[Rfam]
RNA sequence: AAAAUGGCUCUUUUAAGAGCCACCCACAUACAAUAAAAAGCAUGA
Numbered sequence: 001a002a003a004a005u006g007g008c009u010c011u012u013u014u015a016a017g018a019g020c021c022a023c024c025c026a027c028a029u030a031c032a033a034u035a036a037a038a039a040g041c042a043u044g045a
Base pairs, nucleotide, nucleotide: 006021007020008019009018010017011016
A member of the RNA family "Histone 3' UTR stem-loop" from Merluccius polli, 45 nucleotides long.
Rfam describes the family as follows. The mRNAs of metazoan histone genes lack a poly-A tail. 3' end processing occurs at a site between a highly conserved stem-loop (modelled by this family) and a purine rich region around 20 nts downstream (the histone downstream element, or HDE). The stem-loop is bound by a 31 kDa stem-loop binding protein (SLBP - also termed the histone hairpin binding protein, or HBP). Together with U7 snRNA binding of the HDE, SLBP binding nucleate s the formation of the processing complex. The histone 3' UTR stem-loop is also involved in nucleocytoplasmic transport of the mRNA, and in stability regulation and translation efficiency in the cytoplasm.
By type it is a cis-regulatory element.